[Rfam]
RNA sequence: UCGCAAUCCGCCAACCGGUCAAGCCGAGCCGCGGAAGGUUGUCUGAACCCACUGUCACGCUGGAAACCGGCGGAAGAGGUGAGCG
Numbered sequence: 001u002c003g004c005a006a007u008c009c010g011c012c013a014a015c016c017g018g019u020c021a022a023g024c025c026g027a028g029c030c031g032c033g034g035a036a037g038g039u040u041g042u043c044u045g046a047a048c049c050c051a052c053u054g055u056c057a058c059g060c061u062g063g064a065a066a067c068c069g070g071c072g073g074a075a076g077a078g079g080u081g082a083g084c085g
Stems, first nucleotide, its partner, number of pairs: 002085003007035005016026004037049004050081004058072006
The record is an 85-nucleotide RNA from Pseudideonella sakaiensis, which matches "SucA RNA motif" in Rfam. The source organism's lineage runs through Bacteria, Pseudomonadota, Betaproteobacteria, Burkholderiales and Pseudideonella. The literature on the family includes a 2007 paper in Nucleic Acids Res by Weinberg et al., "Identification of 22 candidate structured RNAs in bacteria using the CMfinder comparative genomics pipeline". The family's RNA type in Rfam is cis-regulatory element. The match comes from Rfam's covariance-model search (75 bits).